A member of the RNA family "Manganese Mn2+ riboswitch aptamer (yybP-ykoY)" from Oleomonas cavernae, 189 nucleotides long. For this family Rfam cites "Novel small RNA-encoding genes in the intergenic regions of Escherichia coli" (Argaman et al., Curr Biol, 2001). Its family is annotated with manganese ion binding in the Gene Ontology. The pairing is the family consensus, mapped onto this sequence. Rfam 15.1 lists 1,126 matches to the family in 1,062 species.
RNA sequence: UCACCGCCGCGUCAUUGGGGAGUAGCCGCCCGCGUCUUCAAGCGGGGUGCGCGUCAACAGACUUGGGAACCGGGCCACCGGCGACCAUGGCGCGCACGGCCGAGAUGCUUGGCGAGACCUUUGGCAGGCUGCAUCCAUCCUUCGCAGGGUUGGGCUGUGCGGCUUGCCAUUGGUUUGUCGCCCGACCCU
Number, nucleotide and partner (000 for none) at each position: 001u000002c000003a000004c000005c000006g000007c000008c000009g000010c000011g000012u000013c000014a000015u000016u000017g000018g000019g000020g000021a000022g000023u000024a000025g000026c000027c000028g000029c000030c045031c044032g043033c000034g000035u000036c000037u000038u000039c000040a000041a000042g000043c032044g031045g030046g000047g097048u096049g095050c094051g093052c092053g091054u090055c089056a088057a000058c000059a000060g000061a000062c000063u000064u087065g086066g085067g000068a000069a000070c000071c000072g000073g000074g000075c000076c000077a000078c000079c000080g000081g000082c000083g000084a000085c066086c065087a064088u056089g055090g054091c053092g052093c051094g050095c049096a048097c047098g000099g000100c000101c000102g000103a189104g188105a000106u000107g000108c000109u000110u000111g000112g000113c000114g000115a000116g000117a000118c000119c000120u000121u000122u000123g000124g000125c000126a000127g000128g000129c000130u000131g000132c000133a000134u000135c000136c000137a000138u000139c000140c000141u000142u000143c000144g000145c000146a000147g000148g000149g000150u000151u000152g000153g000154g000155c000156u000157g000158u000159g000160c000161g000162g000163c000164u000165u000166g000167c000168c000169a000170u000171u000172g000173g000174u000175u000176u000177g000178u000179c000180g000181c000182c000183c000184g000185a000186c000187c000188c104189u103